This 67-nucleotide RNA sequence from Carlito syrichta belongs to the Rfam family "Selenocysteine insertion sequence 1". A search with the family's covariance model found it, with a score of 38 bits. The family's consensus secondary structure is taken from published work. It is annotated as a cis-regulatory element. The source organism's lineage runs through Eukaryota, Teleostomi, Sarcopterygii, Primates and Carlito. From the family's description: The incorporation of selenocysteine into a protein sequence is directed by an in-frame UGA codon (usually a stop codon) within the coding region of the mRNA. Selenoprotein mRNAs contain a conserved secondary structure in the 3' UTR that is required for the distinction of UGA stop from UGA selenocysteine. The selenocysteine insertion sequence (SECIS) is around 60 nt in length and adopts a hairpin structure which is sufficiently well-defined and conserved to act as a computational screen for selenoprotein genes.
RNA sequence: CUCUGUUCAUGAUGUCUCUCCCUCUAAACCCUAUUAAGGACCAGGAGAGGCUGAGUAAGCCCCAGAG
Numbered sequence: 001c002u003c004u005g006u007u008c009a010u011g012a013u014g015u016c017u018c019u020c021c022c023u024c025u026a027a028a029c030c031c032u033a034u035u036a037a038g039g040a041c042c043a044g045g046a047g048a049g050g051c052u053g054a055g056u057a058a059g060c061c062c063c064a065g066a067g
Base pairs, nucleotide, nucleotide: 001067002066003065004064005063014051015050016049017048018047019046020045021044030039031038032037